[Rfam]
RNA: c-di-GMP-I riboswitch aptamer
RNA sequence: UAACUUAAAAGGCAAACUAGUUGAAAGAUUAGGACGCAAAACUAGAGGUCUAAGGGAAAUUAAUUCUAUGAUAGCUCGGUUGCCGUU
Numbered sequence: 001u002a003a004c005u006u007a008a009a010a011g012g013c014a015a016a017c018u019a020g021u022u023g024a025a026a027g028a029u030u031a032g033g034a035c036g037c038a039a040a041a042c043u044a045g046a047g048g049u050c051u052a053a054g055g056g057a058a059a060u061u062a063a064u065u066c067u068a069u070g071a072u073a074g075c076u077c078g079g080u081u082g083c084c085g086u087u
Stems, first nucleotide, its partner, number of pairs: 012037002017032006040081004045077003048072003055066003